[Rfam]
RNA sequence: AAGCGACUUUAGGGGUGCCGGAAAAGGCUGAGAUCAUACCCUUGGAACCUGAUUCAGUUAACACUGACGAAGGGAAAAGUUAAAGACCUCUC
Numbered sequence: 001a002a003g004c005g006a007c008u009u010u011a012g013g014g015g016u017g018c019c020g021g022a023a024a025a026g027g028c029u030g031a032g033a034u035c036a037u038a039c040c041c042u043u044g045g046a047a048c049c050u051g052a053u054u055c056a057g058u059u060a061a062c063a064c065u066g067a068c069g070a071a072g073g074g075a076a077a078a079g080u081u082a083a084a085g086a087c088c089u090c091u092c
Stems, first nucleotide, its partner, number of pairs: 006080005011042004016036001017028003048073003054067004